[Rfam]
RNA sequence: AAAAACUUUAAGUCAAUAAAGACUAAGAAGGUUGACACAAGAACAAA
Numbered sequence: 001a002a003a004a005a006c007u008u009u010a011a012g013u014c015a016a017u018a019a020a021g022a023c024u025a026a027g028a029a030g031g032u033u034g035a036c037a038c039a040a041g042a043a044c045a046a047a
Base pairs, nucleotide, nucleotide: 007041008040012036013035014034015033016032017031